RNA sequence: UGGGAGAAUCUGUUAAGCUCAGGAGGGAUAGCGCCACUACGCUUAAACCAUUUUUAUUUUUUUUGGAAAUGGGUUUUUUUGGUUGUUGGUUGCGCUAUCCAUCCUGAGUUUCAUUGGUUCUUCUU
Numbered sequence: 001u002g003g004g005a006g007a008a009u010c011u012g013u014u015a016a017g018c019u020c021a022g023g024a025g026g027g028a029u030a031g032c033g034c035c036a037c038u039a040c041g042c043u044u045a046a047a048c049c050a051u052u053u054u055u056a057u058u059u060u061u062u063u064u065g066g067a068a069a070u071g072g073g074u075u076u077u078u079u080u081g082g083u084u085g086u087u088g089g090u091u092g093c094g095c096u097a098u099c100c101a102u103c104c105u106g107a108g109u110u111u112c113a114u115u116g117g118u119u120c121u122u123c124u125u
Stems, first nucleotide, its partner, number of pairs: 010116001016110009026100009
RNA: MIR390 microRNA precursor family
Organism: Vitis vinifera